[Rfam]
RNA sequence: CACGAUAACGGCAAACCUAUCGAAAGAUAGGGACGCAAAGCUAGAGGGCCUUCCCGCAAGGAUGGCAGCCAGCUACCGAAU
Numbered sequence: 001c002a003c004g005a006u007a008a009c010g011g012c013a014a015a016c017c018u019a020u021c022g023a024a025a026g027a028u029a030g031g032g033a034c035g036c037a038a039a040g041c042u043a044g045a046g047g048g049c050c051u052u053c054c055c056g057c058a059a060g061g062a063u064g065g066c067a068g069c070c071a072g073c074u075a076c077c078g079a080a081u
Stems, first nucleotide, its partner, number of pairs: 003078002011036002016031006034068001039074004046070002048066003